[Rfam]
RNA sequence: GGAAGGGCAUCAGACCCGGUGGUUUGGCCGGACUUCAAAUCCGGUUGGGGCAGCGAGCCUGUCCCGGGUGGGUUCGACUCCCAUUCCCUUCC
Numbered sequence: 001g002g003a004a005g006g007g008c009a010u011c012a013g014a015c016c017c018g019g020u021g022g023u024u025u026g027g028c029c030g031g032a033c034u035u036c037a038a039a040u041c042c043g044g045u046u047g048g049g050g051c052a053g054c055g056a057g058c059c060u061g062u063c064c065c066g067g068g069u070g071g072g073u074u075c076g077a078c079u080c081c082c083a084u085u086c087c088c089u090u091c092c
Base pairs, nucleotide, nucleotide: 001092002091003090004089005088006087007086009084011026012025013024014023015022016021027045028044029043030042031041032040047065048064049063050062051061069083070082071081072080
Dot-bracket structure: (((((((.(.((((((....))))))((((((.......)))))).(((((.........)))))...((((.......))))).)))))))

Annotation:
This 92-nucleotide RNA sequence from Pleodorina starrii belongs to the Rfam family "Selenocysteine transfer RNA". The base pairs follow the family's consensus structure, which is taken from published work. Rfam links the family to the GO term triplet codon-amino acid adaptor activity.